c-di-GMP-I riboswitch aptamer: an 83-nucleotide RNA from Paenalicyclobacillus ferrooxydans.
RNA sequence: UUGUUUAACGGGCAAACUUCGAGAAAUCGAAGGACGCAAAGCCAUGGGCCUACGGCAAUCGCUACGGCUGCCAGGUUGCACAC
Numbered sequence: 001u002u003g004u005u006u007a008a009c010g011g012g013c014a015a016a017c018u019u020c021g022a023g024a025a026a027u028c029g030a031a032g033g034a035c036g037c038a039a040a041g042c043c044a045u046g047g048g049c050c051u052a053c054g055g056c057a058a059u060c061g062c063u064a065c066g067g068c069u070g071c072c073a074g075g076u077u078g079c080a081c082a083c
Base pairs, nucleotide, nucleotide: 012037013036017032018031019030020029021028022027040077041076042075043074045073046072047071048068049067050066055062056061